[Rfam]
The family of this 108-nucleotide RNA from Canis lupus is "mir-8834 microRNA precursor family". It scores 40 bits against the family's covariance model. Lineage of the source: Eukaryota > Deuterostomia > Craniata > Euteleostomi > Canis lupus.

RNA sequence: AGGAGGAACAACAACAGUGGCAGCGGCCAGCUCCCCAGCCCUGGAGUCAGCUCACACAGUAACUACCGGAGCUCCCAGUCUGCAGGGGCCUGGAUGCUCCGGGUUGGG
Dot-bracket structure: .((((.(.((.(......(((.(.((..((((((..(...(((.............)))....)...))))))))).))).......)..))..).))))........
Numbered sequence: 001a002g003g004a005g006g007a008a009c010a011a012c013a014a015c016a017g018u019g020g021c022a023g024c025g026g027c028c029a030g031c032u033c034c035c036c037a038g039c040c041c042u043g044g045a046g047u048c049a050g051c052u053c054a055c056a057c058a059g060u061a062a063c064u065a066c067c068g069g070a071g072c073u074c075c076c077a078g079u080c081u082g083c084a085g086g087g088g089c090c091u092g093g094a095u096g097c098u099c100c101g102g103g104u105u106g107g108g
Stems, first nucleotide, its partner, number of pairs: 002100004007095001009092002012088001019080003023076001025075002029073006037064001041059003